[Rfam]
RNA sequence: GAGUUACCUCUUUGUUUGUUUUGAUUAAAGAUUCAGCACCUUUAUCAAAACGGGUAACUCUCUACUUUUCAAGAAGAUGUGUCAGAUCUUGUCUGAACUAAUUCACCUAAGAGAUAUAUUAUUUUCCCCUCCAUGUAGGCAGUUUUUACCAUCGUUUUUUCUCAAUCGGUAAACAAUGCCGUUC
Numbered sequence: 001g002a003g004u005u006a007c008c009u010c011u012u013u014g015u016u017u018g019u020u021u022u023g024a025u026u027a028a029a030g031a032u033u034c035a036g037c038a039c040c041u042u043u044a045u046c047a048a049a050a051c052g053g054g055u056a057a058c059u060c061u062c063u064a065c066u067u068u069u070c071a072a073g074a075a076g077a078u079g080u081g082u083c084a085g086a087u088c089u090u091g092u093c094u095g096a097a098c099u100a101a102u103u104c105a106c107c108u109a110a111g112a113g114a115u116a117u118a119u120u121a122u123u124u125u126c127c128c129c130u131c132c133a134u135g136u137a138g139g140c141a142g143u144u145u146u147u148a149c150c151a152u153c154g155u156u157u158u159u160u161c162u163c164a165a166u167c168g169g170u171a172a173a174c175a176a177u178g179c180c181g182u183u184c
Stems, first nucleotide, its partner, number of pairs: 001060007009053002018051008027043001029041002067135001069133001073128001076126002081098002083095005100123003105119001156176001157173003160169002

Shown here is a 184-nucleotide RNA sequence from Thalassotalea euphylliae, a member of the family "Proteobacterial sRNA psRNA2". The family has 7 seed sequences and 122 matches in Rfam 15.1. Taxonomically the source falls in Thalassotalea (Bacteria, Pseudomonadati, Gammaproteobacteria, Alteromonadales). The pairing is the family consensus, mapped onto this sequence.